RNA sequence: UAGAAUUUGUUUGAUUUAGAACACUUAUAUCAAUAAAAUAGUUUGAACUAUUU
Numbered sequence: 001u002a003g004a005a006u007u008u009g010u011u012u013g014a015u016u017u018a019g020a021a022c023a024c025u026u027a028u029a030u031c032a033a034u035a036a037a038a039u040a041g042u043u044u045g046a047a048c049u050a051u052u053u
Base pairs, nucleotide, nucleotide: 011033012032013031014030015029017027
RNA: Plastid-atpF group II-D1 intron